[Rfam]
RNA sequence: AACACAACUGGGCAAACCACGCGAAAGCGUGGGACGCAAAGUCACCGGUCUAAGGAGUGCAUACUCUACGAUAGCGGGAUUGCUGGC
Numbered sequence: 001a002a003c004a005c006a007a008c009u010g011g012g013c014a015a016a017c018c019a020c021g022c023g024a025a026a027g028c029g030u031g032g033g034a035c036g037c038a039a040a041g042u043c044a045c046c047g048g049u050c051u052a053a054g055g056a057g058u059g060c061a062u063a064c065u066c067u068a069c070g071a072u073a074g075c076g077g078g079a080u081u082g083c084u085g086g087c
Stems, first nucleotide, its partner, number of pairs: 012037002017032006040081004045077003048072003055066004
Dot-bracket structure: ...........((...((((((....))))))...))..((((.((((((....((((....))))...)))..)))))))......
About this RNA
The record is an 87-nucleotide sequence from Marisediminitalea aggregata, which matches "c-di-GMP-I riboswitch aptamer" in Rfam. Gene Ontology term of the family: cyclic-di-GMP binding. Pairs were carried over by alignment from the consensus structure, which is taken from published work. It scores 82 bits against the family's covariance model. Lineage of the source: Bacteria > Pseudomonadati > Pseudomonadota > Gammaproteobacteria > Marisediminitalea.